About this RNA: Shown here is an 81-nucleotide RNA from Rattus norvegicus, a member of the family "mir-434 microRNA precursor family".
RNA sequence: GUUUGAACCACAGCUCGACUCAUGGUUUGAACCAUUGUCAAACUCGUGGUUUGAACCAUCACUCGACUCCUGGUUUGAAUC
Numbered sequence: 001g002u003u004u005g006a007a008c009c010a011c012a013g014c015u016c017g018a019c020u021c022a023u024g025g026u027u028u029g030a031a032c033c034a035u036u037g038u039c040a041a042a043c044u045c046g047u048g049g050u051u052u053g054a055a056c057c058a059u060c061a062c063u064c065g066a067c068u069c070c071u072g073g074u075u076u077g078a079a080u081c
Stems, first nucleotide, its partner, number of pairs: 001080010012068002015066004022059014
Rfam links the family to the GO terms miRNA-mediated post-transcriptional gene silencing and RISC complex. The source organism's lineage runs through Eukaryota, Sarcopterygii, Glires, Muridae and Rattus. The literature on the family includes a 2010 paper in Genes Dev by Chiang et al., "Mammalian microRNAs: experimental evaluation of novel and previously annotated genes". The family has 2 seed sequences and 3 matches in Rfam 15.1.